[Rfam]
RNA sequence: AUCUUAUCGAGAGCGGCGGAGGGAUAGGCCCGAUGAAGCCCGGCAACCGAUUUAUACUAAGUGUUCUUUUGGACACUGAAUGUGAAUGUCAUGGUGCUAAUUCCUACAAUGCCGCAUGUAUGCAGCGGCCUUUGGCAGAUGAGAC
Numbered sequence: 001a002u003c004u005u006a007u008c009g010a011g012a013g014c015g016g017c018g019g020a021g022g023g024a025u026a027g028g029c030c031c032g033a034u035g036a037a038g039c040c041c042g043g044c045a046a047c048c049g050a051u052u053u054a055u056a057c058u059a060a061g062u063g064u065u066c067u068u069u070u071g072g073a074c075a076c077u078g079a080a081u082g083u084g085a086a087u088g089u090c091a092u093g094g095u096g097c098u099a100a101u102u103c104c105u106a107c108a109a110u111g112c113c114g115c116a117u118g119u120a121u122g123c124a125g126c127g128g129c130c131u132u133u134g135g136c137a138g139a140u141g142a143g144a145c
Base pairs, nucleotide, nucleotide: 002144003143004142005141006140007139008138013041015040016039017038021031022030023029025106026105027104028103042098043097044096045095047094048093049090050089051088102137107134108133109132111130